[Rfam]
Nucleotides: 091
Base pairs, nucleotide, nucleotide: 009083010082011081013079014078018074019073023069024068025067027065028064030062032060033059034058
Number, partner (000 for none) and nucleotide at each position: 001000c002000c003000c004000u005000a006000g007000c008000c009083c010082u011081g012000a013079u014078u015000g016000c017000a018074g019073c020000g021000a022000a023069a024068a025067g026000c027065c028064c029000g030062c031000a032060c033059c034058c035000c036000c037000a038000a039000u040000c041000c042000c043000c044000a045000a046000a047000g048000c049000c050000u051000u052000g053000g054000g055000g056000g057000a058034g059033g060032g061000g062030g063000a064028g065027g066000a067025c068024u069023u070000g071000a072000a073019g074018c075000g076000g077000a078014a079013a080000g081011c082010a083009g084000g085000u086000u087000c088000c089000c090000g091000g
A member of the RNA family "Flavo-1 RNA" from Psychroflexus sediminis, 91 nucleotides long. By type it is a small RNA. Rfam 15.1 lists 7,497 matches to the family in 411 species. The organism belongs to Psychroflexus, within Bacteria.